[Rfam]
RNA sequence: GGCGUAAAGGGCACGUAGGUGGACUAGUAAGUUAAAAGUGAAAUACCAAAGCUUAACUUUGGAGCGGCUUUUAAUACUGCUAGACUAGAGGUCGAAAGAGGAUAGCGGAAUUCCUAGUGUAGAGGUGAAAUUCGUAGAUAUUAGGAGGAACACCAGUGGCGAAGGCGGCUAUCUGGUUCGAUACUGACACUGAGGUGCGAAAGCGUGGGGAGCAAACAGGAUUAGAUACCCUGGUAGUCCACGCUGUAAACGAUGAGUGCUAAAUGUGAGGAUUUUAUCUUUGUAUUGUAGCUAACGCGUUAAGCACUCCGCCUGGGGACUACGGUCGCAAGACUAAAACUCAAAGGAAU
Numbered sequence: 001g002g003c004g005u006a007a008a009g010g011g012c013a014c015g016u017a018g019g020u021g022g023a024c025u026a027g028u029a030a031g032u033u034a035a036a037a038g039u040g041a042a043a044u045a046c047c048a049a050a051g052c053u054u055a056a057c058u059u060u061g062g063a064g065c066g067g068c069u070u071u072u073a074a075u076a077c078u079g080c081u082a083g084a085c086u087a088g089a090g091g092u093c094g095a096a097a098g099a100g101g102a103u104a105g106c107g108g109a110a111u112u113c114c115u116a117g118u119g120u121a122g123a124g125g126u127g128a129a130a131u132u133c134g135u136a137g138a139u140a141u142u143a144g145g146a147g148g149a150a151c152a153c154c155a156g157u158g159g160c161g162a163a164g165g166c167g168g169c170u171a172u173c174u175g176g177u178u179c180g181a182u183a184c185u186g187a188c189a190c191u192g193a194g195g196u197g198c199g200a201a202a203g204c205g206u207g208g209g210g211a212g213c214a215a216a217c218a219g220g221a222u223u224a225g226a227u228a229c230c231c232u233g234g235u236a237g238u239c240c241a242c243g244c245u246g247u248a249a250a251c252g253a254u255g256a257g258u259g260c261u262a263a264a265u266g267u268g269a270g271g272a273u274u275u276u277a278u279c280u281u282u283g284u285a286u287u288g289u290a291g292c293u294a295a296c297g298c299g300u301u302a303a304g305c306a307c308u309c310c311g312c313c314u315g316g317g318g319a320c321u322a323c324g325g326u327c328g329c330a331a332g333a334c335u336a337a338a339a340c341u342c343a344a345a346g347g348a349a350u
Stems, first nucleotide, its partner, number of pairs: 001313003009310001011198004016192001018191003022085001024083005030078002032074008046062006089185002092181005100174007107151001111147008122133003159166002203244006212238002217233004255309006263287010291298002315342003324335004
A member of the RNA family "Bacterial small subunit ribosomal RNA" from Ehrlichia canis, 350 nucleotides of a longer RNA. The sequence is in the family's curated seed alignment. NCBI's taxonomy places the organism under Bacteria, Alphaproteobacteria, Rickettsiales, Anaplasmataceae, Ehrlichia.